[Rfam]
RNA: Small nucleolar RNA SNORA1
RNA sequence: AGACUCAUUCUAGAUGAAAAUGGGCACUGUUUUUGUACAUAUGUCCAGAAAUUGUUAAUGUGGUUACACUGAGACACAGGUUUUGCUUCCAUCACAGUAACUUUAUUGCAGUGGUGACAAUGAGACCUGUAACAUUA
Numbered sequence: 001a002g003a004c005u006c007a008u009u010c011u012a013g014a015u016g017a018a019a020a021u022g023g024g025c026a027c028u029g030u031u032u033u034u035g036u037a038c039a040u041a042u043g044u045c046c047a048g049a050a051a052u053u054g055u056u057a058a059u060g061u062g063g064u065u066a067c068a069c070u071g072a073g074a075c076a077c078a079g080g081u082u083u084u085g086c087u088u089c090c091a092u093c094a095c096a097g098u099a100a101c102u103u104u105a106u107u108g109c110a111g112u113g114g115u116g117a118c119a120a121u122g123a124g125a126c127c128u129g130u131a132a133c134a135u136u137a
Base pairs, nucleotide, nucleotide: 002064004062006060007059008058021047022046023045024044025043026042076130077129078128079127080126090116091115092114093113094112095111